[Rfam]
terC RNA: a 59-nucleotide RNA from Devosia aurantiaca.
Pairs were carried over by alignment from the consensus structure, which is taken from published work.

RNA sequence: AGGCAAGGCCGGGCCCCUCUGGUCGUAGCGUUCUGCUGCGGCGAUGUCGGAAUUGCUCC
Numbered sequence: 001a002g003g004c005a006a007g008g009c010c011g012g013g014c015c016c017c018u019c020u021g022g023u024c025g026u027a028g029c030g031u032u033c034u035g036c037u038g039c040g041g042c043g044a045u046g047u048c049g050g051a052a053u054u055g056c057u058c059c
Stems, first nucleotide, its partner, number of pairs: 006053001009050004022042008
Record summary: Rfam 15.1 lists 1,112 matches to the family in 772 species.